Bacterial large subunit ribosomal RNA: a 264-nucleotide part of an RNA from Bdellovibrio bacteriovorus.
It is one of the family's seed sequences.
Lineage of the source: Bacteria > Pseudomonadati > Bdellovibrionia > Bdellovibrionales > Bdellovibrio bacteriovorus.
Pairs were carried over by alignment from the consensus structure, which is taken from published work.
[Rfam]
RNA sequence: UGAGAUUUGAGUAGACCUGUCCUUAGUACGAGAGGACCGGGAUGGACGAACCUCUGGUGUUCCUGUUGUUCUGCCAAGAGCAAUGCAGGGUAGCUAUGUUCGGAAUUGAUAACCGCUGAAAGCAUCUAAGCGGGAAGCAAACUACAAGAUUAGAUCUCACUGGGGCUUCGGCCCCCUAAAGACCCCUUGGAGACUACGAGGUUGAUAGGCUGAAGGUGUAAGUACAGCAAUGUAUUGAGCUGAUCAGUACUAAUAGGUCGUGAG
Numbered sequence: 001u002g003a004g005a006u007u008u009g010a011g012u013a014g015a016c017c018u019g020u021c022c023u024u025a026g027u028a029c030g031a032g033a034g035g036a037c038c039g040g041g042a043u044g045g046a047c048g049a050a051c052c053u054c055u056g057g058u059g060u061u062c063c064u065g066u067u068g069u070u071c072u073g074c075c076a077a078g079a080g081c082a083a084u085g086c087a088g089g090g091u092a093g094c095u096a097u098g099u100u101c102g103g104a105a106u107u108g109a110u111a112a113c114c115g116c117u118g119a120a121a122g123c124a125u126c127u128a129a130g131c132g133g134g135a136a137g138c139a140a141a142c143u144a145c146a147a148g149a150u151u152a153g154a155u156c157u158c159a160c161u162g163g164g165g166c167u168u169c170g171g172c173c174c175c176c177u178a179a180a181g182a183c184c185c186c187u188u189g190g191a192g193a194c195u196a197c198g199a200g201g202u203u204g205a206u207a208g209g210c211u212g213a214a215g216g217u218g219u220a221a222g223u224a225c226a227g228c229a230a231u232g233u234a235u236u237g238a239g240c241u242g243a244u245c246a247g248u249a250c251u252a253a254u255a256g257g258u259c260g261u262g263a264g
Stems, first nucleotide, its partner, number of pairs: 001159008011145004017045007047102005055096003062089005067082006106140003113133005162176003178261001181259004185201005206252003209248005215241002222235005